[Rfam]
RNA sequence: CAAAAGUUCCCGUCAUUGGGGAGUAGCCGACCUGCACCACGCAGGAGUUUGCGUCAACACACUUGUCCCUCAGGACAUGGCGCAAGCAGCUUCCAAGCCUGGCAAGACCUUUGACUGUACCGCCUGCGGAUGGGCCGCCGGGCUGUGCAGUCUUUGUUUUGCUUGCGGCCCUUGGAGUU
Numbered sequence: 001c002a003a004a005a006g007u008u009c010c011c012g013u014c015a016u017u018g019g020g021g022a023g024u025a026g027c028c029g030a031c032c033u034g035c036a037c038c039a040c041g042c043a044g045g046a047g048u049u050u051g052c053g054u055c056a057a058c059a060c061a062c063u064u065g066u067c068c069c070u071c072a073g074g075a076c077a078u079g080g081c082g083c084a085a086g087c088a089g090c091u092u093c094c095a096a097g098c099c100u101g102g103c104a105a106g107a108c109c110u111u112u113g114a115c116u117g118u119a120c121c122g123c124c125u126g127c128g129g130a131u132g133g134g135c136c137g138c139c140g141g142g143c144u145g146u147g148c149a150g151u152c153u154u155u156g157u158u159u160u161g162c163u164u165g166c167g168g169c170c171c172u173u174g175g176a177g178u179u
Stems, first nucleotide, its partner, number of pairs: 031045003047087010064077005088179006
The record is a 179-nucleotide sequence from Giesbergeria anulus, which matches "Manganese Mn2+ riboswitch aptamer (yybP-ykoY)" in Rfam. NCBI's taxonomy places the organism under Bacteria, Pseudomonadota, Betaproteobacteria, Burkholderiales, Giesbergeria. The pairing is the family consensus, mapped onto this sequence. About the family: This RNA was originally discovered in E. coli during a large scale screen and was named SraF. The family was later found to exist upstream of related families of protein genes in many bacteria, including the the yybP and ykoK genes in B. subtilis. The specific functions of these proteins are unknown, but this structured RNA element may be involved in their genetic regulation as a riboswitch.